Rfam assigns this 130-nucleotide sequence from Paracoccus denitrificans to the family "Alphaproteobacterial ar14". Rfam's curators write: Smr14C2 was renamed NfeR1 (Nodule Formation Efficiency RNA) highly expressed in salt stress and during the symbiotic interaction on legume roots.
[Rfam]
Nucleotides: 130
Stems, first nucleotide, its partner, number of pairs: 007043003012039001014037005048080010094125010
Number, partner (000 for none) and nucleotide at each position: 001000g002000a003000a004000u005000a006000g007043a008042a009041c010000a011000c012039c013000c014037g015036a016035c017034c018033c019000a020000c021000u022000c023000c024000u025000c026000c027000u028000c029000c030000c031000u032000u033018g034017g035016g036015u037014c038000c039012g040000g041009g042008u043007u044000c045000a046000g047000g048080c049079g050078g051077c052076a053075u054074c055073c056072u057071c058000c059000c060000u061000c062000c063000u064000c065000c066000u067000c068000c069000c070000u071057g072056a073055g074054g075053a076052u077051g078050c079049c080048g081000c082000c083000g084000c085000u086000c087000a088000g089000a090000u091000a092000c093000g094125g095124c096123g097122a098121a099120g100119u101118c102117u103116g104000u105000u106000c107000c108000u109000c110000c111000u112000c113000c114000c115000u116103c117102a118101g119100g120099c121098u122097u123096c124095g125094c126000g127000u128000u129000c130000c
For this family Rfam cites "A survey of sRNA families in alpha-proteobacteria" (del Val et al., RNA Biol, 2012).